[Rfam]
RNA sequence: AUCUAUCUUCGGGGCAGGGUGUAAUUCCCGACCGACGGUGUUGAGAAGAGAUUCUCUAAGCCCGUGAGCCUUUAUUAGGCAGGAUUUGGUGCGAUUCCAAAGCCGACUGUAUAGUCUGGAUGGGAGAAGAUGGAG
Numbered sequence: 001a002u003c004u005a006u007c008u009u010c011g012g013g014g015c016a017g018g019g020u021g022u023a024a025u026u027c028c029c030g031a032c033c034g035a036c037g038g039u040g041u042u043g044a045g046a047a048g049a050g051a052u053u054c055u056c057u058a059a060g061c062c063c064g065u066g067a068g069c070c071u072u073u074a075u076u077a078g079g080c081a082g083g084a085u086u087u088g089g090u091g092c093g094a095u096u097c098c099a100a101a102g103c104c105g106a107c108u109g110u111a112u113a114g115u116c117u118g119g120a121u122g123g124g125a126g127a128a129g130a131u132g133g134a135g
Base pairs, nucleotide, nucleotide: 003133004132005131006130007129008128009127010126017029018028019027031115032114033105034104035065036064037063038062060103061102070079085101086100087099088098089097107118109116
Background:
A member of the RNA family "FMN riboswitch aptamer (RFN element)" from Bacillus sp. DNRA2, 135 nucleotides long. Pairs were carried over by alignment from the consensus structure, which is taken from published work. It scores 115 bits against the family's covariance model.